[Rfam]
RNA sequence: CACCGAGGUAGAGGUCGCAUCAUUCAUUAAUCCUGUUGAGUAAGCAAAUAUUAGGACGCAGGCCUAGGGAAUGAUGCCGAAAUGGAUCACGUGUUUGCUCACGGAUUUGUUGGGACGCACGGGAAAUACCUGGCGGACUGUCUUAGCUUUUGCUAAGUUGCGCUAUGUUUUGU
Numbered sequence: 001c002a003c004c005g006a007g008g009u010a011g012a013g014g015u016c017g018c019a020u021c022a023u024u025c026a027u028u029a030a031u032c033c034u035g036u037u038g039a040g041u042a043a044g045c046a047a048a049u050a051u052u053a054g055g056a057c058g059c060a061g062g063c064c065u066a067g068g069g070a071a072u073g074a075u076g077c078c079g080a081a082a083u084g085g086a087u088c089a090c091g092u093g094u095u096u097g098c099u100c101a102c103g104g105a106u107u108u109g110u111u112g113g114g115a116c117g118c119a120c121g122g123g124a125a126a127u128a129c130c131u132g133g134c135g136g137a138c139u140g141u142c143u144u145a146g147c148u149u150u151u152g153c154u155a156a157g158u159u160g161c162g163c164u165a166u167g168u169u170u171u172g173u
Stems, first nucleotide, its partner, number of pairs: 006168001008166004017077009032062005081111008090103004112139002116135003120132004142157006

Shown here is a 173-nucleotide RNA sequence from Enterococcus dispar, a member of the family "Lysine riboswitch aptamer".
Rfam links the family to the GO term lysine biosynthetic process.
The organism belongs to Enterococcus dispar, within Bacteria.
The family's consensus secondary structure is taken from published work.